Source information: A member of the RNA family "Guanidine-II riboswitch aptamer (mini-ykkC)" from Pseudomonas fluorescens, 53 nucleotides long. Simpler in structure and has fewer highly conserved nucleotide positions than the ykkC-yxkD leader.
RNA sequence: UCGCGAGGACGACCUUGCGGCUCGAUCGAGUUAUUCAUCUGGGGACGACCCCG
Numbered sequence: 001u002c003g004c005g006a007g008g009a010c011g012a013c014c015u016u017g018c019g020g021c022u023c024g025a026u027c028g029a030g031u032u033a034u035u036c037a038u039c040u041g042g043g044g045a046c047g048a049c050c051c052c053g
Stems, first nucleotide, its partner, number of pairs: 001020008040053005